[Rfam]
RNA: MIR812 microRNA precursor family
Organism: Oryza punctata
RNA sequence: AAAGAACACAGUUUUGCGUUUUUUGUCUAACGUUUAACCGCUAGUUUUAUUUAAAAAAUUAUGAUUGGUAUUUUUAUUGUUAUUAGAUGGUAAAAUAUGAAUAAUACUUUGUGACUAAUUUUUGUUAAUUUUUUAUGAAUUCUUUAAAUAAGAUGGAUGGUUAAACGUUGAAUACAGAAAUGCAAUGUUAUAUUUAAA
Number, nucleotide and partner (000 for none) at each position: 001a000002a000003a000004g000005a000006a000007c000008a000009c000010a000011g000012u000013u000014u000015u000016g000017c000018g000019u000020u000021u000022u000023u000024u000025g000026u172027c000028u170029a169030a168031c167032g000033u165034u164035u163036a162037a161038c160039c159040g158041c000042u156043a000044g154045u153046u152047u151048u150049a149050u148051u000052u000053a000054a000055a000056a000057a000058a000059u000060u000061a000062u000063g000064a000065u000066u000067g000068g000069u000070a000071u000072u000073u000074u000075u000076a000077u000078u000079g000080u000081u000082a000083u000084u000085a000086g000087a000088u000089g000090g000091u000092a000093a000094a000095a000096u000097a000098u000099g000100a000101a000102u000103a000104a000105u000106a000107c000108u000109u000110u000111g000112u000113g000114a000115c000116u000117a000118a000119u000120u000121u000122u000123u000124g000125u000126u000127a000128a000129u000130u000131u000132u000133u000134u000135a000136u000137g000138a000139a000140u000141u000142c000143u000144u000145u000146a000147a000148a050149u049150a048151a047152g046153a045154u044155g000156g042157a000158u040159g039160g038161u037162u036163a035164a034165a033166c000167g031168u030169u029170g028171a000172a026173u000174a000175c000176a000177g000178a000179a000180a000181u000182g000183c000184a000185a000186u000187g000188u000189u000190a000191u000192a000193u000194u000195u000196a000197a000198a000